Description
Rfam assigns this 74-nucleotide RNA sequence from Spirochaeta lutea to the family "tRNA". About the family: Transfer RNA (tRNA) molecules are approximately 80 nucleotides in length. The organism belongs to Spirochaeta, within Bacteria. A search with the family's covariance model found it, with a score of 69 bits.

[Rfam]
RNA sequence: GCGUCCUUAGCUCAGCUGGAUAGAGCAACGGCCUUCUAAGCCGUAGGUCACACGUUCGAGUCGUGUAGGACGCG
Numbered sequence: 001g002c003g004u005c006c007u008u009a010g011c012u013c014a015g016c017u018g019g020a021u022a023g024a025g026c027a028a029c030g031g032c033c034u035u036c037u038a039a040g041c042c043g044u045a046g047g048u049c050a051c052a053c054g055u056u057c058g059a060g061u062c063g064u065g066u067a068g069g070a071c072g073c074g
Stems, first nucleotide, its partner, number of pairs: 001073007010026004028044005050066005